[Rfam]
RNA: GP20-b RNA
RNA sequence: UGUCAGCAGAUGAGACGUAAAACAGUCUGGACUUACCAUAAAUCAGAGGGGCGACCUCGUAAAAAGCGUA
Numbered sequence: 001u002g003u004c005a006g007c008a009g010a011u012g013a014g015a016c017g018u019a020a021a022a023c024a025g026u027c028u029g030g031a032c033u034u035a036c037c038a039u040a041a042a043u044c045a046g047a048g049g050g051g052c053g054a055c056c057u058c059g060u061a062a063a064a065a066g067c068g069u070a
Base pairs, nucleotide, nucleotide: 001017002016003015004014009027010026011025046058047057048056